[Rfam]
Rfam assigns this 136-nucleotide RNA from Pedionomus torquatus to the family "Small nucleolar RNA SNORA33".
Nucleotides: 136
Stems, first nucleotide, its partner, number of pairs: 003068005017044005077129004089116007097108003
Number, partner (000 for none) and nucleotide at each position: 001000a002000u003068g004067c005066c006065a007064g008000u009000u010000c011000a012000a013000u014000g015000u016000c017044u018043c019042u020041g021040c022000u023000c024000a025000a026000c027000u028000u029000g030000a031000a032000c033000u034000u035000g036000u037000u038000u039000u040021g041020c042019g043018g044017a045000g046000c047000a048000c049000u050000c051000u052000u053000u054000u055000a056000a057000a058000a059000a060000g061000a062000c063000a064007c065006u066005g067004g068003u069000a070000g071000a072000g073000u074000a075000a076000a077129g078128c079127c080126a081000c082000g083000g084000u085000a086000c087000g088000a089116g090115c091114c092113u093112u094111g095110a096000a097108g098107a099106c100000u101000c102000c103000g104000u105000u106099g107098u108097c109000u110095u111094u112093g113092a114091g115090g116089u117000c118000c119000c120000a121000a122000g123000a124000g125000a126080u127079g128078g129077c130000u131000a132000c133000a134000u135000c136000u
From the family's description: ACA33 is a member of the H/ACA class of snoRNA that guide the sites of modification of uridines to pseudouridines. Rfam links the family to the GO terms nucleolus and RNA processing. The organism belongs to Pedionomus, within Eukaryota.